Shown here is a 99-nucleotide sequence from Citrobacter freundii, a member of the family "OxyS RNA". It scores 76 bits against the family's covariance model. The source organism's lineage runs through Bacteria, Pseudomonadati, Gammaproteobacteria, Citrobacter and Citrobacter freundii complex. Pairs were carried over by alignment from the consensus structure, which is taken from published work. Rfam describes the family as follows. OxyS is a small untranslated RNA which is induced in response to oxidative stress in Escherichia coli. This novel RNA acts as a global regulator to activate or repress the expression of as many as 40 genes, including the fhlA-encoded transcriptional activator and the rpoS-encoded sigma(s) subunit of RNA polymerase. OxyS is bound by the Hfq protein, that increases the OxyS RNA interaction with its target messages.

RNA sequence: GAAACGGAACGGUACCCCUUUAACCCUUGAAGCUACUGUCCGUUCUCAUACUCGAAAUAACUAAAGCCAACGUAAACGUUUGCGGACCUCUGGUCCGCU
Numbered sequence: 001g002a003a004a005c006g007g008a009a010c011g012g013u014a015c016c017c018c019u020u021u022a023a024c025c026c027u028u029g030a031a032g033c034u035a036c037u038g039u040c041c042g043u044u045c046u047c048a049u050a051c052u053c054g055a056a057a058u059a060a061c062u063a064a065a066g067c068c069a070a071c072g073u074a075a076a077c078g079u080u081u082g083c084g085g086a087c088c089u090c091u092g093g094u095c096c097g098c099u
Base pairs, nucleotide, nucleotide: 001046003044004043005042006041007040009039010038011037012036015032017029082098083097084096085095086094087093088092